[Rfam]
RNA sequence: UGUCUCCUCCACCCUCCUCCUUUGGUGGAUUAAGCCCGAACCAGCGGUUCGGGCUCAGAUUG
Numbered sequence: 001u002g003u004c005u006c007c008u009c010c011a012c013c014c015u016c017c018u019c020c021u022u023u024g025g026u027g028g029a030u031u032a033a034g035c036c037c038g039a040a041c042c043a044g045c046g047g048u049u050c051g052g053g054c055u056c057a058g059a060u061u062g
Stems, first nucleotide, its partner, number of pairs: 008029006033055008
This 62-nucleotide sequence from Burkholderia mallei belongs to the Rfam family "Betaproteobacteria toxic small RNA". It is one of the family's seed sequences. On this family, see Sass et al., Sci Rep 2017: "Identification of small RNAs abundant in Burkholderia cenocepacia biofilms reveal putative regulators with a potential role in carbon and iron metabolism". The family's consensus secondary structure was predicted with WAR.